RNA sequence: GGUGCGGGCCGGGCCCCUCUGGCGCUCCUCCUUCGGGAAGAACGUGAUGUCGGACCGCAUCG
Numbered sequence: 001g002g003u004g005c006g007g008g009c010c011g012g013g014c015c016c017c018u019c020u021g022g023c024g025c026u027c028c029u030c031c032u033u034c035g036g037g038a039a040g041a042a043c044g045u046g047a048u049g050u051c052g053g054a055c056c057g058c059a060u061c062g
Stems, first nucleotide, its partner, number of pairs: 006056002009053004022045003026041002029038003

The family of this 62-nucleotide RNA sequence from Sphingomonas desiccabilis is "terC RNA". It scores 54 bits against the family's covariance model. By type it is a cis-regulatory element. The family has 129 seed sequences and 1,112 matches in Rfam 15.1.